[Rfam]
RNA sequence: AUACUUACCUGGCAGGGGAGAUACCAUGAUCACGAAGGAGGUUUUUCCAGGGCAAGCCUUAUCCAUUGCAUUCCAGAUGUGCUGACCCCUGAGAUUUCCUCAAACAUGGGAAACUUAACUGCAUAAUUUAUGAUAGUAGGGACUGCAUUUGCACUCUCCCCAU
Numbered sequence: 001a002u003a004c005u006u007a008c009c010u011g012g013c014a015g016g017g018g019a020g021a022u023a024c025c026a027u028g029a030u031c032a033c034g035a036a037g038g039a040g041g042u043u044u045u046u047c048c049a050g051g052g053c054a055a056g057c058c059u060u061a062u063c064c065a066u067u068g069c070a071u072u073c074c075a076g077a078u079g080u081g082c083u084g085a086c087c088c089c090u091g092a093g094a095u096u097u098c099c100u101c102a103a104a105c106a107u108g109g110g111a112a113a114c115u116u117a118a119c120u121g122c123a124u125a126a127u128u129u130a131u132g133a134u135a136g137u138a139g140g141g142a143c144u145g146c147a148u149u150u151g152c153a154c155u156c157u158c159c160c161c162a163u
Base pairs, nucleotide, nucleotide: 012122013121014120015119016048017047018046019045020044021043023042024041025040027038049090050089051088052087056083058081060079061078062077063076093116094115095113096112097111099109100108137162139160140159141158142157145154